[Rfam]
RNA sequence: GUGAGGCGGGGUCUGAAGGAAGCGUGUAGCAAAGCCACGACCUGACGAACAGAAACCAGAUAUGAGGCCUACCCGGUCGGACGAGCGAGCAAAUGAUCGCGAAGUCCUCAACCAUCAAGGACUGGGGUGGUAGAUCUGGCAGGUGUGUGGUGAAGGCGGUUGAGC
Number, nucleotide and partner (000 for none) at each position: 001g000002u000003g000004a000005g000006g000007c000008g000009g000010g000011g000012u000013c000014u000015g000016a000017a000018g000019g000020a000021a000022g165023c164024g000025u162026g161027u000028a000029g157030c156031a000032a000033a000034g151035c150036c149037a148038c147039g146040a144041c143042c142043u141044g140045a000046c000047g000048a000049a000050c000051a000052g000053a000054a000055a000056c139057c138058a137059g136060a135061u134062a000063u000064g000065a000066g000067g131068c130069c129070u000071a000072c126073c125074c124075g123076g122077u121078c000079g107080g106081a105082c104083g000084a000085g100086c099087g098088a097089g000090c000091a000092a000093a000094u000095g000096a000097u088098c087099g086100c085101g000102a000103a000104g082105u081106c080107c079108u000109c000110a000111a000112c000113c000114a000115u000116c000117a000118a000119g000120g000121a077122c076123u075124g074125g073126g072127g000128u000129g069130g068131u067132a000133g000134a061135u060136c059137u058138g057139g056140c044141a043142g042143g041144u040145g000146u039147g038148u037149g036150g035151u034152g000153a000154a000155g000156g030157c029158g000159g000160u000161u026162g025163a000164g023165c022
This 165-nucleotide RNA sequence from Candidatus Burkholderia verschuerenii belongs to the Rfam family "Group II catalytic intron D1-D4-3".
It scores 131 bits against the family's covariance model.
Rfam describes the family as follows. Group II introns are found in rRNA, tRNA and mRNA of organelles in fungi, plants and protists, and also in mRNA in bacteria.